[Rfam]
RNA sequence: GUGUUCGGGUAAUCGCGGGCUGCAUAUGCAGUCUGAGGAAAGUCCAAGCUUGCACAGGCUGCGAUGCCUGUAGUGAUCGUGCUUGCUGAAAAAAUAAGGCAAGGUACCUACAUUGUAGGUAACGGCAGAUAAAAAGGCUAAAACUUCGGUCAUGCCUGAGUAGUCUUGAAAAGUGCCACAGUGACGAAGUAGUAUUGGAAACUGUACUAGUGGAACGCGGUAAACCCCUCGAGCAGGUAACCCAAAUUUUGGUAGGGGCGCUUCAUGACGGAAAUGAACUAAUCAUGGGGGCGAGUUUUUAACUCGGAGAUAGAUGAUUACCACCGAUUCCAGUCCUGGCUGGAUGACGUACGGAACGUGGCUUAUAGAG
Numbered sequence: 001g002u003g004u005u006c007g008g009g010u011a012a013u014c015g016c017g018g019g020c021u022g023c024a025u026a027u028g029c030a031g032u033c034u035g036a037g038g039a040a041a042g043u044c045c046a047a048g049c050u051u052g053c054a055c056a057g058g059c060u061g062c063g064a065u066g067c068c069u070g071u072a073g074u075g076a077u078c079g080u081g082c083u084u085g086c087u088g089a090a091a092a093a094a095u096a097a098g099g100c101a102a103g104g105u106a107c108c109u110a111c112a113u114u115g116u117a118g119g120u121a122a123c124g125g126c127a128g129a130u131a132a133a134a135a136g137g138c139u140a141a142a143a144c145u146u147c148g149g150u151c152a153u154g155c156c157u158g159a160g161u162a163g164u165c166u167u168g169a170a171a172a173g174u175g176c177c178a179c180a181g182u183g184a185c186g187a188a189g190u191a192g193u194a195u196u197g198g199a200a201a202c203u204g205u206a207c208u209a210g211u212g213g214a215a216c217g218c219g220g221u222a223a224a225c226c227c228c229u230c231g232a233g234c235a236g237g238u239a240a241c242c243c244a245a246a247u248u249u250u251g252g253u254a255g256g257g258g259c260g261c262u263u264c265a266u267g268a269c270g271g272a273a274a275u276g277a278a279c280u281a282a283u284c285a286u287g288g289g290g291g292c293g294a295g296u297u298u299u300u301a302a303c304u305c306g307g308a309g310a311u312a313g314a315u316g317a318u319u320a321c322c323a324c325c326g327a328u329u330c331c332a333g334u335c336c337u338g339g340c341u342g343g344a345u346g347a348c349g350u351a352c353g354g355a356a357c358g359u360g361g362c363u364u365a366u367a368g369a370g
Stems, first nucleotide, its partner, number of pairs: 004370003007366001008322007016035006040364003044361003048357001049237005054071006077232003081228001082103006104123001105121006124227002127166004135157004143150002173225002175221003190209006197202001241257003261290007292306005324349001329344004

A member of the RNA family "Bacterial RNase P class B" from Ligilactobacillus araffinosus, 370 nucleotides long. About the family: Ribonuclease P (RNase P) is a ubiquitous endoribonuclease, found in archaea, bacteria and eukarya as well as chloroplasts and mitochondria. A search with the family's covariance model found it, with a score of 323 bits. Its Rfam clan is "RNaseP clan".